RNA sequence: ACUGUCAUCUUACCAAACAGCAUUAGUUCGAAGAACUAAACUUGCUAAUACUGUCAGGUAAAGAUGGCUUA
Dot-bracket structure: ...(((((((((((..((((.((((((................)))))).))))..))))).))))))...
Numbered sequence: 001a002c003u004g005u006c007a008u009c010u011u012a013c014c015a016a017a018c019a020g021c022a023u024u025a026g027u028u029c030g031a032a033g034a035a036c037u038a039a040a041c042u043u044g045c046u047a048a049u050a051c052u053g054u055c056a057g058g059u060a061a062a063g064a065u066g067g068c069u070u071a
Stems, first nucleotide, its partner, number of pairs: 004068006010061005017054004022049006